Shown here is an 87-nucleotide RNA from Cnephaeus nilssonii, a member of the family "mir-9195 microRNA precursor family". Rfam links the family to the GO terms miRNA-mediated post-transcriptional gene silencing and RISC complex. The match comes from Rfam's covariance-model search (98 bits). The organism belongs to Cnephaeus, within Eukaryota.
[Rfam]
RNA sequence: AGAGGCCCUCCGCGGCCAGGGUGGAAUACUUGCCUCGUCGCCAUGGCAACGAAGCAAGCAUUCCGCCAGGCCGCACACGCUGCCUGC
Numbered sequence: 001a002g003a004g005g006c007c008c009u010c011c012g013c014g015g016c017c018a019g020g021g022u023g024g025a026a027u028a029c030u031u032g033c034c035u036c037g038u039c040g041c042c043a044u045g046g047c048a049a050c051g052a053a054g055c056a057a058g059c060a061u062u063c064c065g066c067c068a069g070g071c072c073g074c075a076c077a078c079g080c081u082g083c084c085u086g087c
Stems, first nucleotide, its partner, number of pairs: 004084003012074006020067008029058005037050002040047002